RNA sequence: UCACUCUGGUUUCUCUACAGAUCGAAUAAAUCUUUCGCCUUUUACUAAAGAUUUCCGUGCAGAGAAGCAAUAAGAGACUGAUUUAAUUUUUUGUUGCCCUGCUGAACUGCGGGGCU
Dot-bracket structure: ...(((..((((((((.((........((((((((...........))))))))...)).)))))))).....)))...................((((((........)))))).
The family of this 116-nucleotide RNA from Sphaeramia orbicularis is "U5 spliceosomal RNA". It is annotated as a spliceosomal small nuclear RNA. U5 RNA is a component of both types of known spliceosome. Gene Ontology terms of the family: spliceosomal tri-snRNP complex assembly and U5 snRNP.